[Rfam]
RNA: Histone 3' UTR stem-loop
Organism: Trichuris suis
RNA sequence: CAAACGGCCCUUUUCAGGGCCACUACAGACUAUGCACAUUUUUAUAU
Numbered sequence: 001c002a003a004a005c006g007g008c009c010c011u012u013u014u015c016a017g018g019g020c021c022a023c024u025a026c027a028g029a030c031u032a033u034g035c036a037c038a039u040u041u042u043u044a045u046a047u
Stems, first nucleotide, its partner, number of pairs: 006021006